The family of this 70-nucleotide RNA from Anguilla anguilla is "Small nucleolar RNA SNORD42". Lineage of the source: Eukaryota > Bilateria > Craniata > Vertebrata > Anguilla. Rfam links the family to the GO terms RNA processing and nucleolus. The family's RNA type in Rfam is C/D-box small nucleolar RNA. snoRNA U42 is found in intron 3 of the ribosomal protein L23a (RPL23a) gene in humans and is also present in mice.
RNA sequence: AUGCAAAUGAUGAAAACUUUAUUUUUUGCAUCUGAAAAAUGUGAUGCUUUCAAAGGAACCACUGAUGCAU
Numbered sequence: 001a002u003g004c005a006a007a008u009g010a011u012g013a014a015a016a017c018u019u020u021a022u023u024u025u026u027u028g029c030a031u032c033u034g035a036a037a038a039a040u041g042u043g044a045u046g047c048u049u050u051c052a053a054a055g056g057a058a059c060c061a062c063u064g065a066u067g068c069a070u
Stems, first nucleotide, its partner, number of pairs: 001070005